The family of this 352-nucleotide sequence from Candidatus Solibacter usitatus is "transfer-messenger RNA". NCBI's taxonomy places the organism under Bacteria, Acidobacteriota, Bryobacterales, Solibacteraceae, Candidatus Solibacter usitatus. Bacterial tmRNA, also known as 10Sa RNA or SsrA, is named for its dual tRNA and mRNA-like properties. Its role is to liberate the mRNA from a stalled ribosome. The family's RNA type in Rfam is non-coding RNA gene. On this family, see Felden et al., RNA 1997: "Probing the structure of the Escherichia coli 10Sa RNA (tmRNA)".
RNA sequence: GGGGGCGUAACGGAUUCGACGGGAUUGAAUCGUGGUGGGGAGGCGUGCCGGGUUCCGAGCUCCCGUAAAACGAUCGGAAAACAUAACUGCCAACACGCAGUUUGCAUACGCUGCUUAAUUAAUUAAGUAGCCGUUCCAGCCACUGAGCCUGCGCGGUGGUGAGUGAACGUCAUUUUGCAGGAUAGGCCAAGAGCUUCGGUCCGGAGCUGGCGGCUGAGACUCAAUCGGGCUAAGCUGCCACCGCCCUUGCCGGUUCAGGGGUGGCCGCCGACAACCAUGAGCCGGAUACGCACGUAGUUCUCUCCAGUACGGGCUUUUUCGGACGGGGGUUCAACUCCCCCCGCCUCCACCA
Numbered sequence: 001g002g003g004g005g006c007g008u009a010a011c012g013g014a015u016u017c018g019a020c021g022g023g024a025u026u027g028a029a030u031c032g033u034g035g036u037g038g039g040g041a042g043g044c045g046u047g048c049c050g051g052g053u054u055c056c057g058a059g060c061u062c063c064c065g066u067a068a069a070a071c072g073a074u075c076g077g078a079a080a081a082c083a084u085a086a087c088u089g090c091c092a093a094c095a096c097g098c099a100g101u102u103u104g105c106a107u108a109c110g111c112u113g114c115u116u117a118a119u120u121a122a123u124u125a126a127g128u129a130g131c132c133g134u135u136c137c138a139g140c141c142a143c144u145g146a147g148c149c150u151g152c153g154c155g156g157u158g159g160u161g162a163g164u165g166a167a168c169g170u171c172a173u174u175u176u177g178c179a180g181g182a183u184a185g186g187c188c189a190a191g192a193g194c195u196u197c198g199g200u201c202c203g204g205a206g207c208u209g210g211c212g213g214c215u216g217a218g219a220c221u222c223a224a225u226c227g228g229g230c231u232a233a234g235c236u237g238c239c240a241c242c243g244c245c246c247u248u249g250c251c252g253g254u255u256c257a258g259g260g261g262u263g264g265c266c267g268c269c270g271a272c273a274a275c276c277a278u279g280a281g282c283c284g285g286a287u288a289c290g291c292a293c294g295u296a297g298u299u300c301u302c303u304c305c306a307g308u309a310c311g312g313g314c315u316u317u318u319u320c321g322g323a324c325g326g327g328g329g330u331u332c333a334a335c336u337c338c339c340c341c342c343g344c345c346u347c348c349a350c351c352a
Base pairs, nucleotide, nucleotide: 001348002347003346004345005344006343007342020321021320022319023318024317027314031311032310033309034308036306037305038304039303040302041301042300043299044294045293046292047291048290049065050064051063052062056076057075058074060072110131111130112129113128114127115126116125117124118123132169133168134167135166136165139160140159142157143156144155145154148181149180150179151178152177183217185215186214187213188212198231199230200229201228202227234268235267237265238264239263240262241261245259246258247257250285251284254281255280256279325341326340327339328338329337